[Rfam]
RNA sequence: UUGCAUGUGGAAAUGUCUACUCCUCAUUUGUUUGUGAGCAGGAAUACAUUCAUGGCAUGCUACAUUAAAAAAGGAGUUCUCAGGGCUGCCAACCUUACAGUAGAGGUUGAGUGAUAGUAUAUUUCUCCUACUGAA
Numbered sequence: 001u002u003g004c005a006u007g008u009g010g011a012a013a014u015g016u017c018u019a020c021u022c023c024u025c026a027u028u029u030g031u032u033u034g035u036g037a038g039c040a041g042g043a044a045u046a047c048a049u050u051c052a053u054g055g056c057a058u059g060c061u062a063c064a065u066u067a068a069a070a071a072a073g074g075a076g077u078u079c080u081c082a083g084g085g086c087u088g089c090c091a092a093c094c095u096u097a098c099a100g101u102a103g104a105g106g107u108u109g110a111g112u113g114a115u116a117g118u119a120u121a122u123u124u125c126u127c128c129u130a131c132u133g134a135a
Base pairs, nucleotide, nucleotide: 003060004059005058006057007056008055016042017041018040020038021037022036023034073128074127075126076125085115089111090109091108092107093106094105095104096103
RNA: Small nucleolar RNA U109
Organism: Propithecus coquereli